[Rfam]
RNA sequence: AGGAAUAUUGGUCUUCGAGCUAUUGAGUCUAAAGAUUUAUAUCCAUGACUUUUUAGCCGCUGGGUUAGCACAAGAAAUUGGUUAGCCUCCCUGUGAUUUGGAAAGAAGACGUGUACAUAAAGCA
Numbered sequence: 001a002g003g004a005a006u007a008u009u010g011g012u013c014u015u016c017g018a019g020c021u022a023u024u025g026a027g028u029c030u031a032a033a034g035a036u037u038u039a040u041a042u043c044c045a046u047g048a049c050u051u052u053u054u055a056g057c058c059g060c061u062g063g064g065u066u067a068g069c070a071c072a073a074g075a076a077a078u079u080g081g082u083u084a085g086c087c088u089c090c091c092u093g094u095g096a097u098u099u100g101g102a103a104a105g106a107a108g109a110c111g112u113g114u115a116c117a118u119a120a121a122g123c124a
Stems, first nucleotide, its partner, number of pairs: 003118001006115001011110006019057004025051005034043003062088008071080003089101002
Description: This 124-nucleotide sequence from Candidatus Syntrophocurvum alkaliphilum belongs to the Rfam family "Molybdenum/Tungsten riboswitch aptamer (Moco RNA motif)". Taxonomically the source falls in Candidatus Syntrophocurvum (Bacteria, Bacillati, Clostridia, Syntrophomonadaceae).